[Rfam]
RNA sequence: ACUGGAAGCUGCUGGGACCACUUGGGACCAAUCAUGGGCAAAAGAUGUAUGUUUUGUCCAUUGCUGCAGUCUUCCUAGAGUGAAGUGGAGGUCUCUGUCUGCUUUGGGACAGCCAACUGAACCAGAUCGUUCCCCUCCAUACACG
Numbered sequence: 001a002c003u004g005g006a007a008g009c010u011g012c013u014g015g016g017a018c019c020a021c022u023u024g025g026g027a028c029c030a031a032u033c034a035u036g037g038g039c040a041a042a043a044g045a046u047g048u049a050u051g052u053u054u055u056g057u058c059c060a061u062u063g064c065u066g067c068a069g070u071c072u073u074c075c076u077a078g079a080g081u082g083a084a085g086u087g088g089a090g091g092u093c094u095c096u097g098u099c100u101g102c103u104u105u106g107g108g109a110c111a112g113c114c115a116a117c118u119g120a121a122c123c124a125g126a127u128c129g130u131u132c133c134c135c136u137c138c139a140u141a142c143a144c145g
Base pairs, nucleotide, nucleotide: 004075005074006073008070009069010068011067012066034061035060036059037058038057039056044053045052046051087138088137089136090135091134095129097127098126099125101123103121104120105119106118107117

Small Cajal body specific RNA 3: a 145-nucleotide RNA from Rhinopomastus cyanomelas. Rfam links the family to the GO terms Cajal body, RNA processing and nucleolus. By type it is a small Cajal body RNA. The match comes from Rfam's covariance-model search (93 bits). scaRNAs are a specific class of small nuclear RNAs which localise to the Cajal bodies and guide the modification of RNA polymerase II transcribed spliceosomal RNAs U1, U2, U4, U5 and U12. Clan: SCARNA3 clan.